The family of this 78-nucleotide RNA from Diaphorina citri is "mir-965 microRNA precursor family". For this family Rfam cites "The regulation of silkworm fibroin L chain production by miRNA-965 and miRNA-1926 in insect cells" (Huang et al., Bioorg Khim, 2012). The organism belongs to Diaphorina, within Eukaryota. The match comes from Rfam's covariance-model search (69 bits). The family has 16 seed sequences and 224 matches in Rfam 15.1.
RNA sequence: UCUGGAAGGGGGAAGGAUGUACAGCUUUAUGUUGCAUUAUUAUUAUUAUCAUAAGCGUAUAGCUUUUCCCCUUCUAUA
Number, nucleotide and partner (000 for none) at each position: 001u000002c000003u076004g075005g074006a073007a072008g000009g070010g069011g068012g000013a066014a065015g000016g000017a000018u061019g060020u059021a058022c000023a000024g000025c055026u054027u000028u053029a052030u051031g050032u000033u000034g000035c000036a000037u000038u000039a000040u000041u000042a000043u000044u000045a000046u000047u000048a000049u000050c031051a030052u029053a028054a026055g025056c000057g000058u021059a020060u019061a018062g000063c000064u000065u014066u013067u000068c011069c010070c009071c000072u007073u006074c005075u004076a003077u000078a000